[Rfam]
RNA sequence: UUGGUUUGUCCUAAGUUAAAGUUAUCCAAUUUUGACCAAUUUUAUAUAAAAAUAUAACAACAUCUAUACUAGCAAAUAUAUACACAAUCAAAAUAUAUUCCAUGAUGAAUUUAAUGAAACAAAUUUGAUGUUAUAGAUGUUGCUCUAUUUUUCUAUAAAUUUGGUUAAAAUUGGACAAGUUUGACUUACGACAAACCUAA
Numbered sequence: 001u002u003g004g005u006u007u008g009u010c011c012u013a014a015g016u017u018a019a020a021g022u023u024a025u026c027c028a029a030u031u032u033u034g035a036c037c038a039a040u041u042u043u044a045u046a047u048a049a050a051a052a053u054a055u056a057a058c059a060a061c062a063u064c065u066a067u068a069c070u071a072g073c074a075a076a077u078a079u080a081u082a083c084a085c086a087a088u089c090a091a092a093a094u095a096u097a098u099u100c101c102a103u104g105a106u107g108a109a110u111u112u113a114a115u116g117a118a119a120c121a122a123a124u125u126u127g128a129u130g131u132u133a134u135a136g137a138u139g140u141u142g143c144u145c146u147a148u149u150u151u152u153c154u155a156u157a158a159a160u161u162u163g164g165u166u167a168a169a170a171u172u173g174g175a176c177a178a179g180u181u182u183g184a185c186u187u188a189c190g191a192c193a194a195a196c197c198u199a200a
Base pairs, nucleotide, nucleotide: 005195006194007193008192009191012188013187014186015185016184017183018182019181020180022178023177025175026174031169032168033167034166035165045155046154048152049151050150051149052148056144059141060140061139062138063137064136065135066134067133068132073127074126075125076124077123

A member of the RNA family "MIR1435 microRNA precursor family" from Setaria viridis, 200 nucleotides long. Rfam links the family to the GO terms miRNA-mediated post-transcriptional gene silencing and RISC complex. The source organism's lineage runs through Eukaryota, Euphyllophyta, Spermatophyta, Poales and Setaria. Pairs were carried over by alignment from the consensus structure, which was predicted with RNAalifold.